RNA sequence: UCUGGGUUGACCCAGAAUUUAAAGGAAGCUGUAGGUAAAGCGCUGGCAUGACGCAGAGGAAUGGUAUCAGGCUGUCUAUUUGGAUGAGGAGGCUAUUAUCUCUAAAGUCCGAUACUUACACGGGAAGGUAUGCAGUAAAUACGGCAUGUAUAAGCUUGACUUCCUACCCG
Numbered sequence: 001u002c003u004g005g006g007u008u009g010a011c012c013c014a015g016a017a018u019u020u021a022a023a024g025g026a027a028g029c030u031g032u033a034g035g036u037a038a039a040g041c042g043c044u045g046g047c048a049u050g051a052c053g054c055a056g057a058g059g060a061a062u063g064g065u066a067u068c069a070g071g072c073u074g075u076c077u078a079u080u081u082g083g084a085u086g087a088g089g090a091g092g093c094u095a096u097u098a099u100c101u102c103u104a105a106a107g108u109c110c111g112a113u114a115c116u117u118a119c120a121c122g123g124g125a126a127g128g129u130a131u132g133c134a135g136u137a138a139a140u141a142c143g144g145c146a147u148g149u150a151u152a153a154g155c156u157u158g159a160c161u162u163c164c165u166a167c168c169c170g
Base pairs, nucleotide, nucleotide: 001016002015003014004013005012006011029170031168035163040157042155043154044153046149047148048147049146050145062144064142065141066140071136072135073134075132077130078129079128080127081126082110083109084108085107088103089102090101091100
A member of the RNA family "Group II catalytic intron D1-D4-3" from Arachidicoccus soli, 170 nucleotides long.
The pairing is the family consensus, mapped onto this sequence.
Group II introns are found in rRNA, tRNA and mRNA of organelles in fungi, plants and protists, and also in mRNA in bacteria.